[Rfam]
RNA sequence: CCGAAGACCGUGGGGAGCUUAUACAUAGGCUGAGAGGAAGGUGUGGCCUUCGACCCGUAACCUGAUUUGGAUAAUGCCAACGUAGGGAAAGAAUGUUUUCUGUGC
Numbered sequence: 001c002c003g004a005a006g007a008c009c010g011u012g013g014g015g016a017g018c019u020u021a022u023a024c025a026u027a028g029g030c031u032g033a034g035a036g037g038a039a040g041g042u043g044u045g046g047c048c049u050u051c052g053a054c055c056c057g058u059a060a061c062c063u064g065a066u067u068u069g070g071a072u073a074a075u076g077c078c079a080a081c082g083u084a085g086g087g088a089a090a091g092a093a094u095g096u097u098u099u100c101u102g103u104g105c
Stems, first nucleotide, its partner, number of pairs: 006094001009091001011057004017030005037051005061086004067080004
Shown here is a 105-nucleotide sequence from Faecalibacterium sp. An121, a member of the family "TPP riboswitch aptamer (THI element)". The base pairs follow the family's consensus structure, which is taken from published work. The source organism's lineage runs through Bacteria, Bacillota, Clostridia, Oscillospiraceae and Faecalibacterium.